This 356-nucleotide RNA from Aerococcus sp. Group 1 belongs to the Rfam family "Bacterial RNase P class B".
A reference for the family is Frank and Pace (1998), "Ribonuclease P: unity and diversity in a tRNA processing ribozyme", Annu Rev Biochem.
About the family: Ribonuclease P (RNase P) is a ubiquitous endoribonuclease, found in archaea, bacteria and eukarya as well as chloroplasts and mitochondria.
The family is grouped with related families in Rfam's "RNaseP clan".
RNA sequence: AAUUUCGGGUAAUCGCGGGUACCAAGAGGUAUCUGAGGAAAGUCCAUGCUCGCACAAGCUGAGAGGCUUGUAGUGAUCGUGCUUAGCAAAACCAUAAGCUAAGGCUCAGACGGCGGACAAAAAAGCUAAGGACUUAGUCUAGGCUUGAGUCAUCCUGAAAAGUGCCACAGUGACGAAGUUGAAUGGGAAACCAUUCAAGUGGAACGCGGUAAACCCCUCGAGCGAGCAACCCAAACAUUGGUAGGGGCACUUGACGAAUCGGAAAUGAACGAAUUCGUCGGGGCAGUAAUGCAGAUAGAUGAUUACCGAUCAAGUAGCUUCCUGACCUACUUGUGAACAGAACAUGGCUUAUAGAA
Dot-bracket structure: ...(((((((((((.((((((........))))))....[[[.[[[[[(((((((((((......)))))).....(((.(((((((..........))))))((...).)((.(((.....((((...(((.....)))..))))......)))......(((((............((((((((....)))))))).........)))..))))).))))))))...(((...........)))...(((((((...................)))))))(((....)))........)))))))...(((((((.........))))))).........]]]]]]]].).)))
Numbered sequence: 001a002a003u004u005u006c007g008g009g010u011a012a013u014c015g016c017g018g019g020u021a022c023c024a025a026g027a028g029g030u031a032u033c034u035g036a037g038g039a040a041a042g043u044c045c046a047u048g049c050u051c052g053c054a055c056a057a058g059c060u061g062a063g064a065g066g067c068u069u070g071u072a073g074u075g076a077u078c079g080u081g082c083u084u085a086g087c088a089a090a091a092c093c094a095u096a097a098g099c100u101a102a103g104g105c106u107c108a109g110a111c112g113g114c115g116g117a118c119a120a121a122a123a124a125g126c127u128a129a130g131g132a133c134u135u136a137g138u139c140u141a142g143g144c145u146u147g148a149g150u151c152a153u154c155c156u157g158a159a160a161a162g163u164g165c166c167a168c169a170g171u172g173a174c175g176a177a178g179u180u181g182a183a184u185g186g187g188a189a190a191c192c193a194u195u196c197a198a199g200u201g202g203a204a205c206g207c208g209g210u211a212a213a214c215c216c217c218u219c220g221a222g223c224g225a226g227c228a229a230c231c232c233a234a235a236c237a238u239u240g241g242u243a244g245g246g247g248c249a250c251u252u253g254a255c256g257a258a259u260c261g262g263a264a265a266u267g268a269a270c271g272a273a274u275u276c277g278u279c280g281g282g283g284c285a286g287u288a289a290u291g292c293a294g295a296u297a298g299a300u301g302a303u304u305a306c307c308g309a310u311c312a313a314g315u316a317g318c319u320u321c322c323u324g325a326c327c328u329a330c331u332u333g334u335g336a337a338c339a340g341a342a343c344a345u346g347g348c349u350u351a352u353a354g355a356a
Stems, first nucleotide, its partner, number of pairs: 004356003007352001008307007016035006040350003044347005049226005054071006077221003081217001082103006104111001105109001112216002115155003123146004130140003162214002164210003179198008230246003250282007283292003311333007